[Rfam]
RNA: bZIP non canonical Hac1/Xbp1 intron
Organism: Penicillium steckii
RNA sequence: GAGACUUCCGACGCGACACAACAUCCUGCAGCGGUGUUGUGUGACCUGCAGUGUCCGUCGGAAGUCUC
Numbered sequence: 001g002a003g004a005c006u007u008c009c010g011a012c013g014c015g016a017c018a019c020a021a022c023a024u025c026c027u028g029c030a031g032c033g034g035u036g037u038u039g040u041g042u043g044a045c046c047u048g049c050a051g052u053g054u055c056c057g058u059c060g061g062a063a064g065u066c067u068c
Base pairs, nucleotide, nucleotide: 001068002067003066004065005064006063007062009060010059011058012057013056020038021037022036023035024034025033043055044054045053